[Rfam]
RNA: Vault RNA
Organism: Salvelinus namaycush
RNA sequence: GCGCUGGUUUAGCUCAGUGGUUAUGACAAAGCCUAGAUACCACGGUCCACGUCGGGUUGGCGGUACGAACCACGGGCGCUGUCCAGCGUAUGC
Numbered sequence: 001g002c003g004c005u006g007g008u009u010u011a012g013c014u015c016a017g018u019g020g021u022u023a024u025g026a027c028a029a030a031g032c033c034u035a036g037a038u039a040c041c042a043c044g045g046u047c048c049a050c051g052u053c054g055g056g057u058u059g060g061c062g063g064u065a066c067g068a069a070c071c072a073c074g075g076g077c078g079c080u081g082u083c084c085a086g087c088g089u090a091u092g093c
Stems, first nucleotide, its partner, number of pairs: 002088006012077004017073004027067001